[Rfam]
RNA sequence: CAACAACUGAAAGGAGGUGACCAGUGUCUCAUUGUCUCCAACCGAGGUCGCAAGUCGUGACCUGGAGCCCGAAGAUCGAGGUCUCCAACUGACGGCGUUGAACGCCUAAGGUUUGAAGUCACGCCGCGACGCGGCUACGGCGAUGGAGGGUCGUCCCGAGCAAUCGGGGCGGCCC
Numbered sequence: 001c002a003a004c005a006a007c008u009g010a011a012a013g014g015a016g017g018u019g020a021c022c023a024g025u026g027u028c029u030c031a032u033u034g035u036c037u038c039c040a041a042c043c044g045a046g047g048u049c050g051c052a053a054g055u056c057g058u059g060a061c062c063u064g065g066a067g068c069c070c071g072a073a074g075a076u077c078g079a080g081g082u083c084u085c086c087a088a089c090u091g092a093c094g095g096c097g098u099u100g101a102a103c104g105c106c107u108a109a110g111g112u113u114u115g116a117a118g119u120c121a122c123g124c125c126g127c128g129a130c131g132c133g134g135c136u137a138c139g140g141c142g143a144u145g146g147a148g149g150g151u152c153g154u155c156c157c158g159a160g161c162a163a164u165c166g167g168g169g170c171g172g173c174c175c
Stems, first nucleotide, its partner, number of pairs: 016022002030145007043065001046062005066082001068080001083118002088112003094106004123135005148175012
RNA: caulobacter sRNA CC2171